[Rfam]
RNA sequence: AAAGUCCAAUCCGGCCAAAGCCGUAGCGGGCAGGCCGGGACCGAGUCUUGCGGGCGUCGCGGCGACGCGGGGUCUGAAGUGUAGACAGGGGCCGUGCAGGGUGCGGGAUAGAGCCUCGAAAGGUGGAAGGUCGCGGAGGCCGAGCUGCUUCCCUACCAGCGAAGGCCGCAUGUGCAUCGUCGAUAGGCGAGACGAUGUCGCUCCGCCGGGGUCGAAGGCCG
Numbered sequence: 001a002a003a004g005u006c007c008a009a010u011c012c013g014g015c016c017a018a019a020g021c022c023g024u025a026g027c028g029g030g031c032a033g034g035c036c037g038g039g040a041c042c043g044a045g046u047c048u049u050g051c052g053g054g055c056g057u058c059g060c061g062g063c064g065a066c067g068c069g070g071g072g073u074c075u076g077a078a079g080u081g082u083a084g085a086c087a088g089g090g091g092c093c094g095u096g097c098a099g100g101g102u103g104c105g106g107g108a109u110a111g112a113g114c115c116u117c118g119a120a121a122g123g124u125g126g127a128a129g130g131u132c133g134c135g136g137a138g139g140c141c142g143a144g145c146u147g148c149u150u151c152c153c154u155a156c157c158a159g160c161g162a163a164g165g166c167c168g169c170a171u172g173u174g175c176a177u178c179g180u181c182g183a184u185a186g187g188c189g190a191g192a193c194g195a196u197g198u199c200g201c202u203c204c205g206c207c208g209g210g211g212u213c214g215a216a217g218g219c220c221g
Base pairs, nucleotide, nucleotide: 012037013036014035015034016033020031021030022029024190026188027187041089042088045086046085047084048083049081050080051076052075053074054073055072057070058069059068060067061066111213113212114211115210116209117208118207133206134205135204136203137202138201139166140165141164144160145159146158147157171200172199174198175197176196177195178194179193180192181191
RNA: Group II catalytic intron D1-D4-6